This 449-nucleotide part of an RNA from Halorhabdus utahensis belongs to the Rfam family "Archaeal large subunit ribosomal RNA". Lineage of the source: Archaea > Methanobacteriati > Methanobacteriota > Haloarculaceae > Halorhabdus utahensis.
RNA sequence: CCAACCGAAACAUGUCGAAGCAUGACCUCCGCUGAGGUAGUCCGUGGGGUAGAGCGACCGAUUGCCGUGUCCGCCUCCGAGAGGAGUCGGCGCGGCUGUCAAACUCCGAACCUACGGACGCCGUCGACGCGGGGAGUCCGGUAUGCGGGGUAAGCCUGUGUACCAUGAGGGAGACAACCCAGAGCUGGGUUAAGGUCCCCAAGUGUGGAUUAAGUGCGAUCGAAGGUGGUCUCAAGCCCUAGACAGCCGGGAGGUGAGCUUAGAAGCAGCAAUCCUCCAAGAAAAGCGUAACAGCUUACCGGCCGAGGUUUGAGGCGCCCAAAAUGAUCGGGGCUCAAAUCCACCACCGAGACCUGGCCACACCUGUCAAAAGGUGGUUGUGUAGGUUGGCGUUCUGCGCGGGUGGAAGCACGGGUGAGAACUCGUGUGGACCGCGUAGAAACGAAAAU
Dot-bracket structure: ((((((....(((((....))))).(((((((...(((.((((((((....(((.....(((.((((((...(.((((....)))).)..)))))).)))...)).)....)))))))))))......)))))).)...(((((((((.......)))))))))....(((......)))...(((((((...(((......(.((((((..............(((.((((((((((.......(((((.(((...((.........))...)))(...)(...((......)).).)))))...)))))))))))))...................))))))))))...)))))))(((((((......)))))..))....))))))(.((((((((((......((((((((....))))))))...))))))))))..).....